[Rfam]
RNA sequence: UGCCCUCACUACUGUAAGUCGCUCUGGAUAAGAGCGUCUGCCAAGUGACUUCAA
Numbered sequence: 001u002g003c004c005c006u007c008a009c010u011a012c013u014g015u016a017a018g019u020c021g022c023u024c025u026g027g028a029u030a031a032g033a034g035c036g037u038c039u040g041c042c043a044a045g046u047g048a049c050u051u052c053a054a
Stems, first nucleotide, its partner, number of pairs: 013043001014041003020036006
RNA: UnaL2 LINE 3' element
Organism: Coregonus sp. 'balchen'